[Rfam]
RNA sequence: UAUUAUCUUCGGGGUAAGGUGAGAUUCCUAACCGGCGGUUAUAGUCCGUGAGCGAAAGCUGAUUUGGUGAAAUUCCAAAACCGACAGUAUAGUCUGGAUGGGAGAAGAUAAAC
Numbered sequence: 001u002a003u004u005a006u007c008u009u010c011g012g013g014g015u016a017a018g019g020u021g022a023g024a025u026u027c028c029u030a031a032c033c034g035g036c037g038g039u040u041a042u043a044g045u046c047c048g049u050g051a052g053c054g055a056a057a058g059c060u061g062a063u064u065u066g067g068u069g070a071a072a073u074u075c076c077a078a079a080a081c082c083g084a085c086a087g088u089a090u091a092g093u094c095u096g097g098a099u100g101g102g103a104g105a106a107g108a109u110a111a112a113c
Stems, first nucleotide, its partner, number of pairs: 003111008017029003031093002033083002035049004044081002052059002063079005085096003
Source information: A member of the RNA family "FMN riboswitch aptamer (RFN element)" from Gemella sp. GH3, 113 nucleotides long. Lineage of the source: Bacteria > Bacillati > Bacilli > Caryophanales > Gemella.